Trypanosomatid snoRNA TB6Cs1H4: a 73-nucleotide sequence from Trypanosoma congolense.
It scores 85 bits against the family's covariance model.

[Rfam]
RNA sequence: CACCUCAGCAUCAAAGGUCCCUUGGCGGCCGUAUACGUUGAUGCCGCUCCACAGGAUACCCAGUGAGGUAAGA
Numbered sequence: 001c002a003c004c005u006c007a008g009c010a011u012c013a014a015a016g017g018u019c020c021c022u023u024g025g026c027g028g029c030c031g032u033a034u035a036c037g038u039u040g041a042u043g044c045c046g047c048u049c050c051a052c053a054g055g056a057u058a059c060c061c062a063g064u065g066a067g068g069u070a071a072g073a
Base pairs, nucleotide, nucleotide: 002069003068004067005066006065007064017057018056019055020054025047026046027045028044029043